[Rfam]
RNA sequence: GCUGAUUUUGAAUAUUAAAAAAAAAAAAUUACGAGAUACCAUGCAAAAGCAAUCUUCCCUUCAGAAUGACUGAUGGUAUGCUCAGGUUUUUCACAGCAUAUCAUCAUUAAAGGUGAAUAAAAUA
Numbered sequence: 001g002c003u004g005a006u007u008u009u010g011a012a013u014a015u016u017a018a019a020a021a022a023a024a025a026a027a028a029u030u031a032c033g034a035g036a037u038a039c040c041a042u043g044c045a046a047a048a049g050c051a052a053u054c055u056u057c058c059c060u061u062c063a064g065a066a067u068g069a070c071u072g073a074u075g076g077u078a079u080g081c082u083c084a085g086g087u088u089u090u091u092c093a094c095a096g097c098a099u100a101u102c103a104u105c106a107u108u109a110a111a112g113g114u115g116a117a118u119a120a121a122a123u124a
Stems, first nucleotide, its partner, number of pairs: 003031006055117003058113004063108002071106012
RNA: Small nucleolar RNA SNORA15